Description: Rfam assigns this 90-nucleotide sequence from Coregonus sp. 'balchen' to the family "mir-731 microRNA precursor family".
RNA sequence: AGGUGAUGUUCUUCAAUGACACGUUUUUUCCCGGAUUGCCAAACACACUAUAAGCCACCGGGAAUUUCGUGUCAGCAAAGAAUGACACCA
Numbered sequence: 001a002g003g004u005g006a007u008g009u010u011c012u013u014c015a016a017u018g019a020c021a022c023g024u025u026u027u028u029u030c031c032c033g034g035a036u037u038g039c040c041a042a043a044c045a046c047a048c049u050a051u052a053a054g055c056c057a058c059c060g061g062g063a064a065u066u067u068c069g070u071g072u073c074a075g076c077a078a079a080g081a082a083u084g085a086c087a088c089c090a
Stems, first nucleotide, its partner, number of pairs: 002089004007084005017074007029063006036057001038055002
Rfam 15.1 lists 91 matches to the family in 80 species. The family's consensus secondary structure was predicted with RNAalifold. A search with the family's covariance model found it, with a score of 73 bits.